The family of this 94-nucleotide RNA sequence from Chinchilla lanigera is "Small nucleolar RNA U83B".
Taxonomically the source falls in Chinchilla (Eukaryota, Deuterostomia, Chordata, Glires).
Rfam 15.1 lists 966 matches to the family in 652 species.
Rfam's curators write: U83B belongs to the C/D family of snoRNAs. U83B like U83A has no documented RNA target and they share the same host gene with the C/D box snoRNA U43 (RPL3). N.B. U83A/B/C have no sequence similarity with the U83 snoRNA that was cloned by Jady and Kiss (2000).
[Rfam]
RNA sequence: GCAGUUCUGUGAUGAGGCCUUGGAAUGCGCGCUGGGCACAGCGCCUGAGUCAGGCUGAGGAACCAUUCCCUGUUGCCUUCCUUCUGAGAACAGC
Numbered sequence: 001g002c003a004g005u006u007c008u009g010u011g012a013u014g015a016g017g018c019c020u021u022g023g024a025a026u027g028c029g030c031g032c033u034g035g036g037c038a039c040a041g042c043g044c045c046u047g048a049g050u051c052a053g054g055c056u057g058a059g060g061a062a063c064c065a066u067u068c069c070c071u072g073u074u075g076c077c078u079u080c081c082u083u084c085u086g087a088g089a090a091c092a093g094c
Base pairs, nucleotide, nucleotide: 001094002093004091005090
On this family, see Jady and Kiss, Nucleic Acids Res 2000: "Characterisation of the U83 and U84 small nucleolar RNAs: two novel 2'-O-ribose methylation guide RNAs that lack complementarities to ribosomal RNAs". A search with the family's covariance model found it, with a score of 108 bits.